[Rfam]
RNA sequence: GGUCAAGAGAACCAGUGUUAAGCCCCAGCUUACUGGUCGGCAACCCUCCUCUCGCGGUGGGGUGCCCUGGGUGAUGACCGGGUACACCUCACCGGCGGGGUGUGCAAGCGCGGGAC
Numbered sequence: 001g002g003u004c005a006a007g008a009g010a011a012c013c014a015g016u017g018u019u020a021a022g023c024c025c026c027a028g029c030u031u032a033c034u035g036g037u038c039g040g041c042a043a044c045c046c047u048c049c050u051c052u053c054g055c056g057g058u059g060g061g062g063u064g065c066c067c068u069g070g071g072u073g074a075u076g077a078c079c080g081g082g083u084a085c086a087c088c089u090c091a092c093c094g095g096c097g098g099g100g101u102g103u104g105c106a107a108g109c110g111c112g113g114g115a116c
Base pairs, nucleotide, nucleotide: 001079002078003077004076009038011037012036013035014034015033016032021030022029039066040065041064044062045061046060048057049056082105083104084103085102086101087100088099089098090097